[Rfam]
RNA sequence: GGUGGUUCUCAGGUGAUGCACCCCAGAAUCUGGCUCCCUCCUUUCUGGUUCCAGAUGCAUCACCCGAGAAUUGCA
Numbered sequence: 001g002g003u004g005g006u007u008c009u010c011a012g013g014u015g016a017u018g019c020a021c022c023c024c025a026g027a028a029u030c031u032g033g034c035u036c037c038c039u040c041c042u043u044u045c046u047g048g049u050u051c052c053a054g055a056u057g058c059a060u061c062a063c064c065c066g067a068g069a070a071u072u073g074c075a
Stems, first nucleotide, its partner, number of pairs: 002074002005071006012064006019057002022054001026051005032045002
Dot-bracket structure: .((.((((((.((((((.((.(...(((((.((..........)).)))))..).)).)))))).)))))).)).